[Rfam]
RNA sequence: GUUGCUCAUCACUGGUGAACUUUCUCAAAUAAUCUGAAUGAGAAACGUUCUAGUUUCCCGAGCAUACAUCAUAUUACAUCGCCAGAAUUAAACAGCACUGCGCUUCACUAUCGUCUGCUCAGUGUUACCUGUCUCCUGGUACAGAU
Numbered sequence: 001g002u003u004g005c006u007c008a009u010c011a012c013u014g015g016u017g018a019a020c021u022u023u024c025u026c027a028a029a030u031a032a033u034c035u036g037a038a039u040g041a042g043a044a045a046c047g048u049u050c051u052a053g054u055u056u057c058c059c060g061a062g063c064a065u066a067c068a069u070c071a072u073a074u075u076a077c078a079u080c081g082c083c084a085g086a087a088u089u090a091a092a093c094a095g096c097a098c099u100g101c102g103c104u105u106c107a108c109u110a111u112c113g114u115c116u117g118c119u120c121a122g123u124g125u126u127a128c129c130u131g132u133c134u135c136c137u138g139g140u141a142c143a144g145a146u
Stems, first nucleotide, its partner, number of pairs: 003064005017050004021045005081140005087134001094126003098122003102118001

Shown here is a 146-nucleotide RNA from Kalanchoe fedtschenkoi, a member of the family "small nucleolar RNA snoR137". Taxonomically the source falls in Kalanchoe (Eukaryota, Tracheophyta, Spermatophyta, Mesangiospermae). The family's RNA type in Rfam is H/ACA-box small nucleolar RNA. Gene Ontology terms of the family: RNA processing and nucleolus. The match comes from Rfam's covariance-model search (102 bits).